[Rfam]
RNA sequence: GAUGGAUUGGAUACAAUCCAUUAAAAAUAAAAAAUGUUUUAUGGAUGGAUUGGAUGGAUUUUGUA
Number, nucleotide and partner (000 for none) at each position: 001g000002a000003u000004g061005g060006a059007u058008u057009g000010g000011a055012u054013a000014c052015a051016a050017u049018c048019c047020a046021u045022u044023a000024a000025a040026a039027a038028u000029a000030a000031a000032a000033a000034a000035u000036g000037u000038u027039u026040u025041a000042u000043g000044g022045a021046u020047g019048g018049a017050u016051u015052g014053g000054a012055u011056g000057g008058a007059u006060u005061u004062u000063g000064u000065a000
The record is a 65-nucleotide sequence from Medicago truncatula, which matches "MIR5291 microRNA precursor family" in Rfam. It scores 55 bits against the family's covariance model. The family's consensus secondary structure was predicted with RNAalifold.